[Rfam]
RNA sequence: UGUUCCGGUGGGACCAGCGGUCUUCCAAAGGAACUCAGGGAGAAAGAAACCAACCAAACCCCACCCCUCCCGCCCGCCGGAGACGGCGGCCACGGCCGCAGACAGCCGCUCCCGCGCAAACUCACUCGCCCGAGUGAACAUCAGCAACUCAGCUGCAUUUGUGCCCGGUUGCCUGCCUUACGCUCAGCGCAGCAGCACGACCACGGACAACCACAGACAACCGCCUACAGCGGACAUACGACGGCCCUCGCCGGGACUGGCAUCCCAAUGCGAGGGCCUGACCAACAAGGAAGCACACCUUCCCG
Numbered sequence: 001u002g003u004u005c006c007g008g009u010g011g012g013a014c015c016a017g018c019g020g021u022c023u024u025c026c027a028a029a030g031g032a033a034c035u036c037a038g039g040g041a042g043a044a045a046g047a048a049a050c051c052a053a054c055c056a057a058a059c060c061c062c063a064c065c066c067c068u069c070c071c072g073c074c075c076g077c078c079g080g081a082g083a084c085g086g087c088g089g090c091c092a093c094g095g096c097c098g099c100a101g102a103c104a105g106c107c108g109c110u111c112c113c114g115c116g117c118a119a120a121c122u123c124a125c126u127c128g129c130c131c132g133a134g135u136g137a138a139c140a141u142c143a144g145c146a147a148c149u150c151a152g153c154u155g156c157a158u159u160u161g162u163g164c165c166c167g168g169u170u171g172c173c174u175g176c177c178u179u180a181c182g183c184u185c186a187g188c189g190c191a192g193c194a195g196c197a198c199g200a201c202c203a204c205g206g207a208c209a210a211c212c213a214c215a216g217a218c219a220a221c222c223g224c225c226u227a228c229a230g231c232g233g234a235c236a237u238a239c240g241a242c243g244g245c246c247c248u249c250g251c252c253g254g255g256a257c258u259g260g261c262a263u264c265c266c267a268a269u270g271c272g273a274g275g276g277c278c279u280g281a282c283c284a285a286c287a288a289g290g291a292a293g294c295a296c297a298c299c300u301u302c303c304c305g
Base pairs, nucleotide, nucleotide: 007286009284010283016110017109018108019107020106021105122137123136124135125134126133127132152188153187154186155185243278244277245276246275247274249272250271251270253266254265255264256263289303290302291301292300293299
Rfam assigns this 305-nucleotide RNA sequence from Streptomyces lacrimifluminis to the family "Streptomyces sRNA 4677". Rfam's curators write: Located in the intergenic region between anti-sigma factor SCO4677 gene and a putative regulatory protein gene SCO4676. scr4677 expression requires the SCO4677 activity and scr4677 sRNA itself seem to affect the levels of the SCO4676-associated transcripts. The literature on the family includes a 2014 paper in PLoS One by Hindra et al., "Complex intra-operonic dynamics mediated by a small RNA in Streptomyces coelicolor". The organism belongs to Streptomyces, within Bacteria.